[Rfam]
RNA sequence: CCGGUUCCGGUUCACGCCCGAUCCGUCGUACACCCGCGGCCGGGCGACCCGGCGACC
Numbered sequence: 001c002c003g004g005u006u007c008c009g010g011u012u013c014a015c016g017c018c019c020g021a022u023c024c025g026u027c028g029u030a031c032a033c034c035c036g037c038g039g040c041c042g043g044g045c046g047a048c049c050c051g052g053c054g055a056c057c
Stems, first nucleotide, its partner, number of pairs: 003057003007052004015046006023039004
The record is a 57-nucleotide RNA sequence from Salinispora mooreana, which matches "L31-Actinobacteria ribosomal protein leader" in Rfam. Rfam's curators put it in the seed alignment. Lineage of the source: Bacteria > Actinomycetes > Micromonosporales > Micromonosporaceae > Salinispora. Rfam classes the family as a cis-regulatory leader.